[Rfam]
RNA sequence: AGAGGUUUCAAGUCUAAGGUCAUAGCAGAAGUGCUCAUGGUGUGGCCAUGUCAGAUUCCAAUGAAUCUGUGAAUUCUACU
Numbered sequence: 001a002g003a004g005g006u007u008u009c010a011a012g013u014c015u016a017a018g019g020u021c022a023u024a025g026c027a028g029a030a031g032u033g034c035u036c037a038u039g040g041u042g043u044g045g046c047c048a049u050g051u052c053a054g055a056u057u058c059c060a061a062u063g064a065a066u067c068u069g070u071g072a073a074u075u076c077u078a079c080u
Stems, first nucleotide, its partner, number of pairs: 013048001018047004024080002027077004031043003052069007
Dot-bracket structure: ............(....((((..[[.[[[[(((.......))))))))...(((((((....)))))))....]]]].]]